[Rfam]
RNA sequence: UCUACUUAAGCAAUGUAAGCCCUACCUGCUCUUACAUCCUUGCGACCCCUUAGUCGCGCCAGUGUGAAUAAGCAUCUUCCCUAAAAC
Number, nucleotide and partner (000 for none) at each position: 001u000002c000003u000004a000005c000006u000007u000008a000009a000010g000011c000012a000013a000014u000015g000016u000017a000018a000019g000020c000021c000022c000023u000024a000025c000026c000027u000028g000029c000030u000031c000032u000033u000034a000035c066036a065037u000038c000039c062040u061041u058042g057043c056044g055045a054046c053047c000048c000049c000050u000051u000052a000053g046054u045055c044056g043057c042058g041059c000060c000061a040062g039063u000064g000065u036066g035067a000068a000069u000070a000071a000072g000073c000074a000075u000076c000077u000078u000079c000080c000081c000082u000083a000084a000085a000086a000087c000